Rfam assigns this 101-nucleotide RNA from Neobacillus bataviensis to the family "Purine riboswitch aptamer".
From the family's description: Riboswitches are metabolite binding domains within certain messenger RNAs that serve as precision sensors for their corresponding targets.
The family's consensus secondary structure is taken from published work.
RNA sequence: CUUCCUUUAUAAAUAAUUUUUCGUAUAACUCCAAUGAUAUGGUUUGGAGGUCUCUACCAGGAACCAAUAAAUUCCUGAUUACGAAGAAGAUACACUUACCU
Numbered sequence: 001c002u003u004c005c006u007u008u009a010u011a012a013a014u015a016a017u018u019u020u021u022c023g024u025a026u027a028a029c030u031c032c033a034a035u036g037a038u039a040u041g042g043u044u045u046g047g048a049g050g051u052c053u054c055u056a057c058c059a060g061g062a063a064c065c066a067a068u069a070a071a072u073u074c075c076u077g078a079u080u081a082c083g084a085a086g087a088a089g090a091u092a093c094a095c096u097u098a099c100c101u
Stems, first nucleotide, its partner, number of pairs: 018087008029049006058077006